[Rfam]
RNA sequence: GGCUGGUCAUGACAUCCACAAACUUGGACUGCUGCUCGCAAAUGAUACGGGUAAUGCGCAGCCUGUCCUCGUGGGUCAGCAGGUUGAGAUAGUUAUGCGCCAGUUCGUUACUGAGGAUGUUCGUACCGUCAUUGAUACGCAGGAUACAAAUUCCUACCGGUGCCGAAGCCACAAUUUUGCGGUUGAAUUGCUCGUUCUCUUCCAACUGGAACGCAUUCACUUCCGCUGGCAACAGCAUUUUCCGCUCAAACACCAGCGCCAGCACAAACAGCAAGAUAGCCGAUAGCAUAUUCAGCACUAGCAUAUUGAUCAUCAAGGCGCUGAUAUGGGAGAGCAGCACCUUUAACGGCAGCGAAUACACGAUACUGAAUGACGUCGGCGGCAGCGACUUCUUCAAAAUGAGUUCAUCAUAACCAUUCACAUAGCCGAAAUAGUUAUGAUCGGAGGGAUAGCCAUCUACCGACGAAGCGUAACGCCCUUUAUCAUCGG
Numbered sequence: 001g002g003c004u005g006g007u008c009a010u011g012a013c014a015u016c017c018a019c020a021a022a023c024u025u026g027g028a029c030u031g032c033u034g035c036u037c038g039c040a041a042a043u044g045a046u047a048c049g050g051g052u053a054a055u056g057c058g059c060a061g062c063c064u065g066u067c068c069u070c071g072u073g074g075g076u077c078a079g080c081a082g083g084u085u086g087a088g089a090u091a092g093u094u095a096u097g098c099g100c101c102a103g104u105u106c107g108u109u110a111c112u113g114a115g116g117a118u119g120u121u122c123g124u125a126c127c128g129u130c131a132u133u134g135a136u137a138c139g140c141a142g143g144a145u146a147c148a149a150a151u152u153c154c155u156a157c158c159g160g161u162g163c164c165g166a167a168g169c170c171a172c173a174a175u176u177u178u179g180c181g182g183u184u185g186a187a188u189u190g191c192u193c194g195u196u197c198u199c200u201u202c203c204a205a206c207u208g209g210a211a212c213g214c215a216u217u218c219a220c221u222u223c224c225g226c227u228g229g230c231a232a233c234a235g236c237a238u239u240u241u242c243c244g245c246u247c248a249a250a251c252a253c254c255a256g257c258g259c260c261a262g263c264a265c266a267a268a269c270a271g272c273a274a275g276a277u278a279g280c281c282g283a284u285a286g287c288a289u290a291u292u293c294a295g296c297a298c299u300a301g302c303a304u305a306u307u308g309a310u311c312a313u314c315a316a317g318g319c320g321c322u323g324a325u326a327u328g329g330g331a332g333a334g335c336a337g338c339a340c341c342u343u344u345a346a347c348g349g350c351a352g353c354g355a356a357u358a359c360a361c362g363a364u365a366c367u368g369a370a371u372g373a374c375g376u377c378g379g380c381g382g383c384a385g386c387g388a389c390u391u392c393u394u395c396a397a398a399a400u401g402a403g404u405u406c407a408u409c410a411u412a413a414c415c416a417u418u419c420a421c422a423u424a425g426c427c428g429a430a431a432u433a434g435u436u437a438u439g440a441u442c443g444g445a446g447g448g449a450u451a452g453c454c455a456u457c458u459a460c461c462g463a464c465g466a467a468g469c470g471u472a473a474c475g476c477c478c479u480u481u482a483u484c485a486u487c488g489g
Stems, first nucleotide, its partner, number of pairs: 001105007008097006014090003021085003029082006038076002042072004047066006106488002112482005119474003123471002126468001129466002142153004157385001159383001161381006168374001170372002176229002179226004184219005190214002195211003199208001233368003237364003244259002279302002316357001319354005327345004332340001398418004404412001421439006441463004447458004